[Rfam]
RNA sequence: GUUGAGUGGGAAUAAAGAACAUACUUUAUAAGGAUGAGGAAUACCGAAAAAUCAACGUUUUAGCAUACUUAAAAUGCUUGAAAAUCAUUAAAAACUAUAUAGUUCCCUACCAUUUCCCUACCAAAAAAACCUGCUGAAUUUCAGCAGGUUUUUUAUG
Numbered sequence: 001g002u003u004g005a006g007u008g009g010g011a012a013u014a015a016a017g018a019a020c021a022u023a024c025u026u027u028a029u030a031a032g033g034a035u036g037a038g039g040a041a042u043a044c045c046g047a048a049a050a051a052u053c054a055a056c057g058u059u060u061u062a063g064c065a066u067a068c069u070u071a072a073a074a075u076g077c078u079u080g081a082a083a084a085u086c087a088u089u090a091a092a093a094a095c096u097a098u099a100u101a102g103u104u105c106c107c108u109a110c111c112a113u114u115u116c117c118c119u120a121c122c123a124a125a126a127a128a129a130c131c132u133g134c135u136g137a138a139u140u141u142c143a144g145c146a147g148g149u150u151u152u153u154u155a156u157g
Base pairs, nucleotide, nucleotide: 008107009106010105011104012103052081053080054079055078057077058076060074061073085097088094125153126152127151128150129149130148131147132146133145134144135143136142137141

Shown here is a 157-nucleotide RNA sequence from Vagococcus humatus, a member of the family "Listeria sRNA rli38". A reference for the family is Toledo-Arana et al. (2009), "The Listeria transcriptional landscape from saprophytism to virulence", Nature. The family's RNA type in Rfam is small RNA. The source organism's lineage runs through Bacteria, Bacilli, Lactobacillales, Enterococcaceae and Vagococcus.